[Rfam]
RNA sequence: GGCUGUUGCGAUGAGGACAACAAGCUCCCUCUUCUGAAAGCAUUGAGGAUACUGCUGGCAGAAUCGAACCAAAUACCUUGUUGUCACCACUGAGUAA
Numbered sequence: 001g002g003c004u005g006u007u008g009c010g011a012u013g014a015g016g017a018c019a020a021c022a023a024g025c026u027c028c029c030u031c032u033u034c035u036g037a038a039a040g041c042a043u044u045g046a047g048g049a050u051a052c053u054g055c056u057g058g059c060a061g062a063a064u065c066g067a068a069c070c071a072a073a074u075a076c077c078u079u080g081u082u083g084u085c086a087c088c089a090c091u092g093a094g095u096a097a
Base pairs, nucleotide, nucleotide: 006097007096008095009094
RNA: Small nucleolar RNA R30/Z108